Notes
The family of this 460-nucleotide sequence from Longibacter salinarum is "Bacterial RNase P class A". The match comes from Rfam's covariance-model search (222 bits). By type it is a ribozyme.

[Rfam]
RNA sequence: CGUGCGGACCGGAUUGUCGCUCCGUCGGCCUACGUCGGCGGUGAGGAAAGUCCGAACACCAUAGGGCACCGUGCUUCCUAACGGGAAGACCCCGAUUGGCGCAUCCGACUGGAUGAGCUGCCGACUCGGGUAUGGCACGUGCAACAGAGAGAAGUCCCGCCGAUGACUGCGCCUUCGGGCGCGGCACAGGUAAGGGGUGAAAGGGUGCGGUAAGAGCGCACCGGCGCUCUCGGGUGACCGGGGCGGCCAGGCAAACCCCACGGGGUGCAAGACCCAGCAGCACCGCACGAUUCGAAAGGUCCUCCUUUCGGGUCGAUAUGGCGGCCCGUCGAACCGCGGUGCGGGUAGGUUGCUCGAGAUGUCCGGCGACGGGCGUCCCAGAUAGAUGAUGAUCUCCUUCACGCGGCACGCGGCGGCCCGCAGAAGAAGACAGAAUUCGGCUUACAGGUUCGCACGCGCC
Dot-bracket structure: ((((((((((((((((((.(.(((((((......))))))).)....[[[.[[[[[((((...[[[[.((((((((((.....)))))(.(((((..............................)))))..)((...((((.............((.(((..((.(...............).))..)))...)).......((((((.......)))))).((((.(((((....)))))))).)...))..)))))))))))))...((((.....((((((.................................((((.]]]])))).....)))))).....))))......((((((((....))))))))..........))))))).........................................]]]]]]]].).))))))))))....